[Rfam]
RNA sequence: AAUGAGUGAUGACAAAAUGUUUCGGUCCCAAAUGAUACAUAUUGAUUAUACCGCUACAUUUACUUCUGACAUU
Numbered sequence: 001a002a003u004g005a006g007u008g009a010u011g012a013c014a015a016a017a018u019g020u021u022u023c024g025g026u027c028c029c030a031a032a033u034g035a036u037a038c039a040u041a042u043u044g045a046u047u048a049u050a051c052c053g054c055u056a057c058a059u060u061u062a063c064u065u066c067u068g069a070c071a072u073u
Base pairs, nucleotide, nucleotide: 001073002072003071004070

The record is a 73-nucleotide RNA from Canis lupus, which matches "Small nucleolar RNA SNORD73" in Rfam. Rfam's curators put it in the seed alignment. Rfam 15.1 lists 769 matches to the family in 586 species. Pairs were carried over by alignment from the consensus structure, which was predicted with PFOLD. The literature on the family includes a 1998 paper in Gene by Rebane et al., "A novel snoRNA (U73) is encoded within the introns of the human and mouse ribosomal protein S3a genes". Taxonomically the source falls in Canis lupus (Eukaryota, Craniata, Teleostomi, Sarcopterygii). By type it is a C/D-box small nucleolar RNA.